[Rfam]
RNA sequence: UGGUUUUUACCAAGGCUUUUAGAAUGUAAUUUCUCAUUUGCUGUGGACAUGACCACAAAAAAAUUUCUCACCAGGCUUUCUCUACUACCUUGAUAGCAAUCAGCCUUUUGGGAACAUUU
Numbered sequence: 001u002g003g004u005u006u007u008u009a010c011c012a013a014g015g016c017u018u019u020u021a022g023a024a025u026g027u028a029a030u031u032u033c034u035c036a037u038u039u040g041c042u043g044u045g046g047a048c049a050u051g052a053c054c055a056c057a058a059a060a061a062a063a064u065u066u067c068u069c070a071c072c073a074g075g076c077u078u079u080c081u082c083u084a085c086u087a088c089c090u091u092g093a094u095a096g097c098a099a100u101c102a103g104c105c106u107u108u109u110g111g112g113a114a115c116a117u118u119u
Stems, first nucleotide, its partner, number of pairs: 003053003007049001010046003026041004067112004074105004083098001085096001
RNA: Small nucleolar RNA SNORA32
Organism: Oryctolagus cuniculus